[Rfam]
RNA sequence: AUCGAACCAUUUGUUGUUUACUAGGUGGUUAAGAGGGGGCUUAAAAGGCACCCCUAGUCCCUUAGCCGGGGCGACACUGUCGAAUUGCGGGGACUGCCUGUUUGAAUUCUAAGCUACCGCUCCCCGUCCGAAAGGAUGAGUGUGCACCAGAGUAAUGACCUCGGGUAUGGUGAUAACGCUUAAAUAGGGUAAAUCCGCAGCGAAGUUCAAGGGUCCUUUGGACCUAUGGAGCGCGUUCACAGACUAGUUGGCAAUGGGUCUAGGUGAAAUACUUAGGCUUAAGGUAUAGUCGAACCCCCUUGAGAGAGGGCG
Numbered sequence: 001a002u003c004g005a006a007c008c009a010u011u012u013g014u015u016g017u018u019u020a021c022u023a024g025g026u027g028g029u030u031a032a033g034a035g036g037g038g039g040c041u042u043a044a045a046a047g048g049c050a051c052c053c054c055u056a057g058u059c060c061c062u063u064a065g066c067c068g069g070g071g072c073g074a075c076a077c078u079g080u081c082g083a084a085u086u087g088c089g090g091g092g093a094c095u096g097c098c099u100g101u102u103u104g105a106a107u108u109c110u111a112a113g114c115u116a117c118c119g120c121u122c123c124c125c126g127u128c129c130g131a132a133a134g135g136a137u138g139a140g141u142g143u144g145c146a147c148c149a150g151a152g153u154a155a156u157g158a159c160c161u162c163g164g165g166u167a168u169g170g171u172g173a174u175a176a177c178g179c180u181u182a183a184a185u186a187g188g189g190u191a192a193a194u195c196c197g198c199a200g201c202g203a204a205g206u207u208c209a210a211g212g213g214u215c216c217u218u219u220g221g222a223c224c225u226a227u228g229g230a231g232c233g234c235g236u237u238c239a240c241a242g243a244c245u246a247g248u249u250g251g252c253a254a255u256g257g258g259u260c261u262a263g264g265u266g267a268a269a270u271a272c273u274u275a276g277g278c279u280u281a282a283g284g285u286a287u288a289g290u291c292g293a294a295c296c297c298c299c300u301u302g303a304g305a306g307a308g309g310g311c312g
Base pairs, nucleotide, nucleotide: 075256076255078253079252081250082249086199087198088197089196090195091194096190097189098188099187200236201235206230207229208228212224213223214222215221216220240292242291243290244289245288246287258278259277260276261275262274263273264272265271266270297310298309299308300307301306
The family of this 312-nucleotide RNA from Coleophoma cylindrospora is "Group I catalytic intron". Taxonomically the source falls in Coleophoma (Eukaryota, Opisthokonta, saccharomyceta, Leotiomycetes). The family's consensus secondary structure is taken from published work. Rfam's curators write: Group I catalytic introns are large self-splicing ribozymes. They catalyse their own excision from mRNA, tRNA and rRNA precursors in a wide range of organisms. The core secondary structure consists of 9 paired regions (P1-P9). These fold to essentially two domains - the P4-P6 domain (formed from the stacking of P5, P4, P6 and P6a helices) and the P3-P9 domain (formed from the P8, P3, P7 and P9 helices).